RNA sequence: CUCUGGUGCAGCAAAUGAACCAGGGCAAAGGAG
Numbered sequence: 001c002u003c004u005g006g007u008g009c010a011g012c013a014a015a016u017g018a019a020c021c022a023g024g025g026c027a028a029a030g031g032a033g
Base pairs, nucleotide, nucleotide: 001025002024003023004022005021006020007019
RNA: L31-Firmicutes ribosomal protein leader